[Rfam]
RNA: Mammalian CPEB3 ribozyme
Organism: Alligator mississippiensis
Nucleotides: 080
Base pairs, nucleotide, nucleotide: 018047019046020045024080026078027077029075030074031043032042033041052069053068054067055066056065057064
Number, partner (000 for none) and nucleotide at each position: 001000a002000g003000a004000g005000g006000u007000c008000a009000c010000a011000a012000g013000u014000u015000c016000a017000a018047g019046g020045c021000c022000a023000c024080a025000a026078c027077a028000u029075a030074a031043g032042u033041g034000c035000u036000c037000c038000u039000g040000g041033u042032g043031c044000a045020g046019c047018c048000c049000u050000g051000u052069c053068a054067g055066a056065u057064u058000c059000c060000a061000g062000c063000a064057a065056g066055u067054c068053u069052g070000u071000g072000a073000a074030u075029u076000c077027u078026g079000c080024u